[Rfam]
RNA sequence: UUCAAGAUUAGAGUCACACCUUUGUCCUGUUAAUGGUCUUGGUGUGCUAGAGUUUUCGGACAGUGAUUGCUGAUCUUCAUUCCCUGGUUGGUUCUUCACAUAGCUCAGCCAGUCUCCGGUACAGCACUGUCU
Number, nucleotide and partner (000 for none) at each position: 001u000002u059003c058004a000005a056006g055007a053008u052009u051010a000011g000012a048013g047014u000015c046016a045017c044018a043019c042020c041021u000022u000023u000024g038025u000026c036027c035028u000029g000030u000031u000032a000033a000034u000035g027036g026037u000038c024039u000040u000041g020042g019043u018044g017045u016046g015047c013048u012049a000050g000051a009052g008053u007054u000055u006056u005057c000058g003059g002060a000061c000062a000063g000064u000065g000066a000067u000068u000069g000070c124071u123072g122073a000074u000075c119076u118077u000078c000079a000080u000081u000082c000083c000084c112085u111086g110087g109088u000089u107090g106091g105092u103093u102094c000095u000096u000097c000098a000099c000100a000101u000102a093103g092104c000105u091106c090107a089108g000109c087110c086111a085112g084113u000114c000115u000116c000117c000118g076119g075120u000121a000122c072123a071124g070125c000126a000127c000128u000129g000130u000131c000132u000
Small nucleolar RNA SNORA3/SNORA45 family: a 132-nucleotide sequence from Aquarana catesbeiana. The members of this family belong to the H/ACA class of snoRNAs which are thought to guide the sites of modification of uridines to pseudouridines. This family includes mouse snoMBI-28 and human homologues ACA3 (SNORA3) and ACA3-2 (SNORA45). Both ACA3 and ACA3-2 share the same host gene. MBI-28, ACA3 and ACA3-2 are all predicted to guide the pseudouridylation of residues in 28S rRNA. On this family, see Huttenhofer et al., EMBO J 2001: "RNomics: an experimental approach that identifies 201 candidates for novel, small, non-messenger RNAs in mouse". The source organism's lineage runs through Eukaryota, Sarcopterygii, Dipnotetrapodomorpha, Amphibia and Aquarana. It is annotated as an H/ACA-box small nucleolar RNA. Rfam 15.1 lists 2,080 matches to the family in 639 species. It scores 52 bits against the family's covariance model.